Bacterial small subunit ribosomal RNA: a 355-nucleotide part of an RNA from Opitutaceae bacterium TAV5. The match comes from Rfam's covariance-model search (1555 bits). A reference for the family is Yusupov et al. (2001), "Crystal structure of the ribosome at 5.5 A resolution", Science.
[Rfam]
RNA sequence: GGCGUAAAGGGUGCGCAGGCGGUUGUGUGUGUCAGAUGUGAAAUCUCGGGGCUUAACCCCGAAACUGCGUCUGAAACUACAUGACUAGAGUAUCGGAGAGGGUAGCAGAAUUCAUGGUGUAGCAGUGAAAUGCGUAGAUAUCAUGAGGAAUACCAGAGGCGAAGGCGGCUACCUGGACGAUUACUGACGCUCAGGCACGAAAGCGUGGGGAGCAAAAGGGAUUAGAUACCCCUGUAGUCCACGCCCUAAACGGUGCAUACUAGGUCUUGGAGGAUUCGACCCCUUCAGGGCCCAAGCUAACGCGUUAAGUAUGCCGCCUGAGGACUACGGCCGCAAGGCUAAAACUCAAAGGAAU
Numbered sequence: 001g002g003c004g005u006a007a008a009g010g011g012u013g014c015g016c017a018g019g020c021g022g023u024u025g026u027g028u029g030u031g032u033c034a035g036a037u038g039u040g041a042a043a044u045c046u047c048g049g050g051g052c053u054u055a056a057c058c059c060c061g062a063a064a065c066u067g068c069g070u071c072u073g074a075a076a077c078u079a080c081a082u083g084a085c086u087a088g089a090g091u092a093u094c095g096g097a098g099a100g101g102g103u104a105g106c107a108g109a110a111u112u113c114a115u116g117g118u119g120u121a122g123c124a125g126u127g128a129a130a131u132g133c134g135u136a137g138a139u140a141u142c143a144u145g146a147g148g149a150a151u152a153c154c155a156g157a158g159g160c161g162a163a164g165g166c167g168g169c170u171a172c173c174u175g176g177a178c179g180a181u182u183a184c185u186g187a188c189g190c191u192c193a194g195g196c197a198c199g200a201a202a203g204c205g206u207g208g209g210g211a212g213c214a215a216a217a218g219g220g221a222u223u224a225g226a227u228a229c230c231c232c233u234g235u236a237g238u239c240c241a242c243g244c245c246c247u248a249a250a251c252g253g254u255g256c257a258u259a260c261u262a263g264g265u266c267u268u269g270g271a272g273g274a275u276u277c278g279a280c281c282c283c284u285u286c287a288g289g290g291c292c293c294a295a296g297c298u299a300a301c302g303c304g305u306u307a308a309g310u311a312u313g314c315c316g317c318c319u320g321a322g323g324a325c326u327a328c329g330g331c332c333g334c335a336a337g338g339c340u341a342a343a344a345c346u347c348a349a350a351g352g353a354a355u
Base pairs, nucleotide, nucleotide: 001318002317003316009315011198012197013196014195018191019190020189022085023084024083025082026081027080028079031077032074033073034072035071036070037069038068039067040066046062047061048060049059050058051057089185090184091183092181093180094179095178100174101173102172103171104170105169106168107151111147112146113145114144115143116142117141118140122133123132124131159166160165203244204243205242206241207240208239212238213237217233218232219231220230255314256313257312258311259310260309263292264291265290266289267288268287269286270285271284272283273282296303297302320347321346322345329340330339331338332337